Record summary
ZMP/ZTP riboswitch aptamer (pfl RNA motif): an 82-nucleotide sequence from Solirubrobacter pauli. It scores 60 bits against the family's covariance model.
RNA sequence: ACCGGCUGUCGCAACUGGCGCUUAGGUGGAGCACCACCGGGGAGCGACGAGCGUCGUACGGUCGCGCGCCUGGGCAACCAUU
Numbered sequence: 001a002c003c004g005g006c007u008g009u010c011g012c013a014a015c016u017g018g019c020g021c022u023u024a025g026g027u028g029g030a031g032c033a034c035c036a037c038c039g040g041g042g043a044g045c046g047a048c049g050a051g052c053g054u055c056g057u058a059c060g061g062u063c064g065c066g067c068g069c070c071u072g073g074g075c076a077a078c079c080a081u082u
Base pairs, nucleotide, nucleotide: 003053004052007049008048009047010046011045012044015041016040017070018069019068020067021066026037027036028035029034061075062074063073